[Rfam]
RNA sequence: UUCAACUUUGCAACGGAGGAUGGGAAUGAUGGAACCAUGUUUCCUGAAACCAUCCCGUCAACAAAUCCUGCAUGCGUCAAGGCUGACAGGCUUUGGGGUAUGAAGCACAGGUGAUUCGGCAGAACGAAGGCUGGAGCCACUCCAUGAGAGAAGGUAUGCCGACGGAUAUGCCGCGCGGCUUAAAA
Numbered sequence: 001u002u003c004a005a006c007u008u009u010g011c012a013a014c015g016g017a018g019g020a021u022g023g024g025a026a027u028g029a030u031g032g033a034a035c036c037a038u039g040u041u042u043c044c045u046g047a048a049a050c051c052a053u054c055c056c057g058u059c060a061a062c063a064a065a066u067c068c069u070g071c072a073u074g075c076g077u078c079a080a081g082g083c084u085g086a087c088a089g090g091c092u093u094u095g096g097g098g099u100a101u102g103a104a105g106c107a108c109a110g111g112u113g114a115u116u117c118g119g120c121a122g123a124a125c126g127a128a129g130g131c132u133g134g135a136g137c138c139a140c141u142c143c144a145u146g147a148g149a150g151a152a153g154g155u156a157u158g159c160c161g162a163c164g165g166a167u168a169u170g171c172c173g174c175g176c177g178g179c180u181u182a183a184a185a
Stems, first nucleotide, its partner, number of pairs: 018055006031045002034042001056177003067111004071102005077096008117173005125164002129160002131150002138146002
The record is a 185-nucleotide sequence from Lentibacillus salicampi, which matches "Group II catalytic intron D1-D4-5" in Rfam. The match comes from Rfam's covariance-model search (71 bits). Group II introns are found in rRNA, tRNA and mRNA of organelles in fungi, plants and protists, and also in mRNA in bacteria. Rfam links the family to the GO term Group II intron splicing.